[Rfam]
RNA sequence: GGCUUUCUUCGCGGCGGAGCUCGACCGCCCCUCGACACGCUGAUCGCCUACGUCGACCAGCACAAGGAGGAGUUCGGGGUCGAGCCGAUCUGCACCGUCCUGACCGACGCGGACGCCAAGAUCGCCCCG
Numbered sequence: 001g002g003c004u005u006u007c008u009u010c011g012c013g014g015c016g017g018a019g020c021u022c023g024a025c026c027g028c029c030c031c032u033c034g035a036c037a038c039g040c041u042g043a044u045c046g047c048c049u050a051c052g053u054c055g056a057c058c059a060g061c062a063c064a065a066g067g068a069g070g071a072g073u074u075c076g077g078g079g080u081c082g083a084g085c086c087g088a089u090c091u092g093c094a095c096c097g098u099c100c101u102g103a104c105c106g107a108c109g110c111g112g113a114c115g116c117c118a119a120g121a122u123c124g125c126c127c128c129g
Base pairs, nucleotide, nucleotide: 013029014028015027016026017025075129076128077127078126079125086124087123089121090120091119
The family of this 129-nucleotide RNA sequence from Knoellia aerolata is "ALIL pseudoknot". NCBI's taxonomy places the organism under Bacteria, Actinomycetota, Micrococcales, Intrasporangiaceae, Knoellia aerolata. Rfam classes the family as a cis-regulatory element. For this family Rfam cites "Apical loop-internal loop RNA pseudoknots: a new type of stimulator of -1 translational frameshifting in bacteria" (Mazauric et al., J Biol Chem, 2008).